SAM (S-adenosyl methionine) riboswitch aptamer: a 117-nucleotide RNA sequence from Ornithinicoccus hortensis. The organism belongs to Ornithinicoccus, within Bacteria. On this family, see Weinberg et al., RNA 2008: "The aptamer core of SAM-IV riboswitches mimics the ligand-binding site of SAM-I riboswitches".
RNA sequence: GGUCAUGAGUUCCAGCUUCGAGCCCCGGCUUGCUGGACGGCAACCCUCCACUCGCGGUGGGGUGCCCCGGGUGAUGACCUGGCGGGACGCCAUACGGCGUUCUCGCAAGCGCGGGCC
Numbered sequence: 001g002g003u004c005a006u007g008a009g010u011u012c013c014a015g016c017u018u019c020g021a022g023c024c025c026c027g028g029c030u031u032g033c034u035g036g037a038c039g040g041c042a043a044c045c046c047u048c049c050a051c052u053c054g055c056g057g058u059g060g061g062g063u064g065c066c067c068c069g070g071g072u073g074a075u076g077a078c079c080u081g082g083c084g085g086g087a088c089g090c091c092a093u094a095c096g097g098c099g100u101u102c103u104c105g106c107a108a109g110c111g112c113g114g115g116c117c
Stems, first nucleotide, its partner, number of pairs: 001079004009038001011037006021030002039066003044062003048057002082106005087100005